[Rfam]
RNA sequence: GGGGGCAGUCGCGACUGGCGUUGAGAUGGUGAACCAUCAGGGAGCGACCGACACGGUGAGCUGCCGUCCGCCUGGGCCGCUCGU
Numbered sequence: 001g002g003g004g005g006c007a008g009u010c011g012c013g014a015c016u017g018g019c020g021u022u023g024a025g026a027u028g029g030u031g032a033a034c035c036a037u038c039a040g041g042g043a044g045c046g047a048c049c050g051a052c053a054c055g056g057u058g059a060g061c062u063g064c065c066g067u068c069c070g071c072c073u074g075g076g077c078c079g080c081u082c083g084u
Stems, first nucleotide, its partner, number of pairs: 004052001006050001008048005015041002017072004026037004061079001063077003

A member of the RNA family "ZMP/ZTP riboswitch aptamer (pfl RNA motif)" from Yonghaparkia sp. Root332, 84 nucleotides long. The literature on the family includes a 2015 paper in Nat Struct Mol Biol by Jones and Ferre-D'Amare, "Recognition of the bacterial alarmone ZMP through long-distance association of two RNA subdomains". Lineage of the source: Bacteria > Actinomycetes > Micrococcales > Microbacteriaceae > Microcella. The base pairs follow the family's consensus structure, which is taken from published work.